[Rfam]
RNA sequence: CUUCAACGAUCCCAGCCACAGUGGACGGUCCGCCGCACGACCCCGACCGUACGUCGCCAGCAACGCCUGCGCCUC
Numbered sequence: 001c002u003u004c005a006a007c008g009a010u011c012c013c014a015g016c017c018a019c020a021g022u023g024g025a026c027g028g029u030c031c032g033c034c035g036c037a038c039g040a041c042c043c044c045g046a047c048c049g050u051a052c053g054u055c056g057c058c059a060g061c062a063a064c065g066c067c068u069g070c071g072c073c074u075c
Stems, first nucleotide, its partner, number of pairs: 016024002031071003038065002043060001045058001047056001049054001